Rfam assigns this 100-nucleotide RNA sequence from [Bacteroides] pectinophilus to the family "c-di-GMP-I riboswitch aptamer".
RNA sequence: GAUGAUAUUUGGUAAACUUAUAGAAAUAUAAGGACACAAAGCCAGAGUCUAAGGUUAAUGAAGGUGGAAUUGGUAUAACUAUGACAGUUCGGUUGCAUUA
Numbered sequence: 001g002a003u004g005a006u007a008u009u010u011g012g013u014a015a016a017c018u019u020a021u022a023g024a025a026a027u028a029u030a031a032g033g034a035c036a037c038a039a040a041g042c043c044a045g046a047g048u049c050u051a052a053g054g055u056u057a058a059u060g061a062a063g064g065u066g067g068a069a070u071u072g073g074u075a076u077a078a079c080u081a082u083g084a085c086a087g088u089u090c091g092g093u094u095g096c097a098u099u100a
Base pairs, nucleotide, nucleotide: 012037013036017032018031019030020029021028022027040094041093042092043091045090046089047085048084049083054079055078056077057076
The base pairs follow the family's consensus structure, which is taken from published work. Gene Ontology term of the family: cyclic-di-GMP binding. Lineage of the source: Bacteria > Bacillati > Bacillota > Clostridia > [Bacteroides] pectinophilus.